[Rfam]
RNA sequence: GGCCCUAAUUUGAAGUAGAGUAGAUUGGUAGGAUCAGUUGACCAUACUAAUCUACUAUACUUGAAAUUUGGGGCC
Numbered sequence: 001g002g003c004c005c006u007a008a009u010u011u012g013a014a015g016u017a018g019a020g021u022a023g024a025u026u027g028g029u030a031g032g033a034u035c036a037g038u039u040g041a042c043c044a045u046a047c048u049a050a051u052c053u054a055c056u057a058u059a060c061u062u063g064a065a066a067u068u069u070g071g072g073g074c075c
Stems, first nucleotide, its partner, number of pairs: 001075004005070001007068003011064001013062005019056005025050006032043001034041002